[Rfam]
RNA sequence: CGCAGUUCGUGCCACCCGGCCUACACCCGAUUCAGACCUGACACGACUUCCCCCGUGCCAGGCCCGAGCCGGGUGGGGACCAGAGGGCAUGAGCCGCAGGAU
Dot-bracket structure: .........((((..(.((.((.((((((.(((.(.((((.(((..........))).)))).).))).)))))).)).)).)..)))).............